Rfam assigns this 68-nucleotide sequence from Saccharicrinis carchari to the family "DUF805 RNA". Lineage of the source: Bacteria > Pseudomonadati > Bacteroidota > Marinilabiliales > Saccharicrinis. Pairs were carried over by alignment from the consensus structure, which is taken from published work. The family has 46 seed sequences and 281 matches in Rfam 15.1.
RNA sequence: AUAAAAUGGAGUCGACACCAUUUGAAAAAACGGGGCGAAACUGAAAAGCCAAACGAGUAGGGAUUAUU
Numbered sequence: 001a002u003a004a005a006a007u008g009g010a011g012u013c014g015a016c017a018c019c020a021u022u023u024g025a026a027a028a029a030a031c032g033g034g035g036c037g038a039a040a041c042u043g044a045a046a047a048g049c050c051a052a053a054c055g056a057g058u059a060g061g062g063a064u065u066a067u068u
Base pairs, nucleotide, nucleotide: 006021007020008019009018034050035049036048041062042061